[Rfam]
RNA sequence: AUUUGACUGGAUAUUCAAGGGUUUACGAGCAGAAAUGGUAUGAUUGCAGGGUUCGAAACUAAUUAAAUACCCUAGCGCUUAAAGACACUCACCUCCCGCAAAAACAUCCUCGGGUUGGUCUUUUUGAGGGUUUUGAGCGUCGGAUGGAGCAGGGACUGGAGAUGGUUUGUCACCC
Numbered sequence: 001a002u003u004u005g006a007c008u009g010g011a012u013a014u015u016c017a018a019g020g021g022u023u024u025a026c027g028a029g030c031a032g033a034a035a036u037g038g039u040a041u042g043a044u045u046g047c048a049g050g051g052u053u054c055g056a057a058a059c060u061a062a063u064u065a066a067a068u069a070c071c072c073u074a075g076c077g078c079u080u081a082a083a084g085a086c087a088c089u090c091a092c093c094u095c096c097c098g099c100a101a102a103a104a105c106a107u108c109c110u111c112g113g114g115u116u117g118g119u120c121u122u123u124u125u126g127a128g129g130g131u132u133u134u135g136a137g138c139g140u141c142g143g144a145u146g147g148a149g150c151a152g153g154g155a156c157u158g159g160a161g162a163u164g165g166u167u168u169g170u171c172a173c174c175c
Stems, first nucleotide, its partner, number of pairs: 013022003036049001038047003070154004077150004084141003088137004095130003102125003108118002

A member of the RNA family "carA ncRNA motif" from Polynucleobacter sp. MWH-Aus1W21, 175 nucleotides long.
Rfam links the family to the GO term regulation of gene expression.
The organism belongs to Polynucleobacter, within Bacteria.
Rfam's curators write: carA ncRNA motif was reported as a Strong Riboswitch Candidate CarA ncRNA motif was located upstream of carA gene which codes for the small subunit of carbamoyl phosphate synthase, which is an enzyme that catalyses the first committed step in pyrimidine and arginine biosynthesis. It is proposed as a possible cis-regulatory element.
For this family Rfam cites "Comprehensive discovery of novel structured noncoding RNAs in 26 bacterial genomes" (Brewer et al., RNA Biol, 2021).
The family's RNA type in Rfam is cis-regulatory element.
Pairs were carried over by alignment from the consensus structure, which is taken from published work.